[Rfam]
RNA sequence: UGAGUAAGUCAGAUGGUUGCGGGAGAAUUGUUUCUCACGAGGAAAGUCCGGGCUUCGCAGGGCAAGGGUGCCGGGUAACUCCCGGUGGAGGCGACUCUAAGGACAGUGCAACAGAAAUAGACUUCCUGCAUAGCUUUCUGUAAAGAUUGAAUUGUACAAUAUGUGCCUGUGCAGGUAAAGGUGGAAAGGCGAGGUAAGAGCUCACCGGCGCUGCGGCGACGCUGCGGCCAUGUAAACCCCAUCCGAAGCAACACCGUAUUGGCUUACGCAGGCUUAGCCGGCCCGGCAUGCCUGUGUUUGGCGGUGGCUUGAGCCGUGCAGUAAUGUGCGGCCUAGACAGAUAAUCAUCAAAUACAGAACCCGGCUUACAGAUUUGCUCAACAA
Number, nucleotide and partner (000 for none) at each position: 001u380002g379003a378004g377005u376006a375007a374008g373009u372010c371011a000012g349013a348014u347015g346016g345017u344018u343019g000020c039021g038022g000023g036024a035025g034026a033027a032028u000029u000030g000031u000032u027033u026034c025035u024036c023037a000038c021039g020040a000041g000042g000043a000044a367045a366046g365047u000048c364049c363050g362051g361052g360053c248054u247055u246056c245057g000058c000059a000060g000061g284062g283063c000064a000065a000066g244067g243068g242069u241070g240071c085072c084073g083074g082075g081076u000077a000078a000079c000080u000081c075082c074083c073084g072085g071086u100087g098088g097089a096090g095091g000092c000093g000094a000095c090096u089097c088098u087099a000100a086101g239102g238103a000104c000105a000106g237107u236108g233109c232110a231111a000112c000113a000114g000115a000116a000117a000118u000119a000120g000121a000122c180123u179124u000125c175126c174127u173128g172129c171130a170131u169132a168133g000134c000135u000136u000137u000138c000139u000140g000141u000142a000143a000144a000145g000146a000147u000148u000149g000150a000151a000152u000153u000154g000155u000156a000157c000158a000159a000160u000161a000162u000163g000164u000165g000166c000167c000168u132169g131170u130171g129172c128173a127174g126175g125176u000177a000178a000179a123180g122181g000182u000183g000184g000185a000186a000187a000188g206189g205190c000191g203192a202193g201194g000195u000196a000197a000198g000199a000200g000201c193202u192203c191204a000205c189206c188207g000208g228209c226210g225211c224212u000213g222214c221215g220216g000217c000218g000219a000220c215221g214222c213223u000224g211225c210226g209227g000228c208229c000230a000231u110232g109233u108234a000235a000236a107237c106238c102239c101240c070241a069242u068243c067244c066245g056246a055247a054248g053249c000250a000251a000252c306253a305254c304255c303256g000257u000258a000259u000260u000261g000262g000263c000264u000265u000266a000267c000268g295269c294270a293271g292272g291273c290274u000275u000276a000277g287278c286279c285280g000281g000282c000283c062284c061285g279286g278287c277288a000289u000290g273291c272292c271293u270294g269295u268296g000297u000298u000299u000300g000301g000302c000303g255304g254305u253306g252307g000308c000309u000310u000311g000312a000313g332314c331315c330316g329317u328318g327319c326320a325321g000322u000323a000324a000325u320326g319327u318328g317329c316330g315331g314332c313333c000334u000335a000336g000337a000338c000339a000340g000341a000342u000343a018344a017345u016346c015347a014348u013349c012350a000351a000352a000353u000354a000355c000356a000357g000358a000359a000360c052361c051362c050363g049364g048365c046366u045367u044368a000369c000370a000371g010372a009373u008374u007375u006376g005377c004378u003379c002380a001381a000382c000383a000384a000
RNA: Bacterial RNase P class A